[Rfam]
Rfam assigns this 93-nucleotide sequence from Cervus elaphus to the family "Small nucleolar RNA SNORD116". The organism belongs to Cervus elaphus, within Eukaryota. Rfam classes the family as a C/D-box small nucleolar RNA. On this family, see Cavaille et al., Proc Natl Acad Sci U S A 2000: "Identification of brain-specific and imprinted small nucleolar RNA genes exhibiting an unusual genomic organization".
Nucleotides: 093
Stems, first nucleotide, its partner, number of pairs: 001093001003091001005089001026056005032048003
Number, partner (000 for none) and nucleotide at each position: 001093g002000c003091a004000a005089c006000a007000g008000u009000u010000a011000c012000g013000a014000c015000a016000c017000c018000c019000u020000c021000u022000c023000a024000u025000g026056c027055a028054u029053u030052c031000c032048u033047u034046g035000g036000a037000a038000a039000a040000u041000c042000u043000g044000a045000a046034c047033a048032a049000a050000a051000u052030g053029a054028g055027u056026g057000a058000g059000a060000a061000c062000u063000c064000a065000c066000u067000a068000c069000u070000g071000u072000c073000u074000c075000c076000u077000c078000a079000u080000c081000g082000a083000a084000a085000c086000u087000g088000a089005g090000g091003u092000c093001c